[Rfam]
Rfam assigns this 53-nucleotide RNA from Shimwellia blattae to the family "L31-Gammaproteobacteria ribosomal protein leader". Rfam's curators put it in the seed alignment. On this family, see Eckert and Weinberg, BMC Microbiol 2020: "Discovery of 20 novel ribosomal leader candidates in bacteria and archaea". Lineage of the source: Bacteria > Pseudomonadota > Enterobacterales > Enterobacteriaceae > Shimwellia blattae. By type it is a cis-regulatory leader.
RNA sequence: CGCGUGGUGUCUGGCGUUAGGGCCGGAAGAGCGACGCGGCCUUAGACAGAGGU
Numbered sequence: 001c002g003c004g005u006g007g008u009g010u011c012u013g014g015c016g017u018u019a020g021g022g023c024c025g026g027a028a029g030a031g032c033g034a035c036g037c038g039g040c041c042u043u044a045g046a047c048a049g050a051g052g053u
Stems, first nucleotide, its partner, number of pairs: 001038005007032002010027006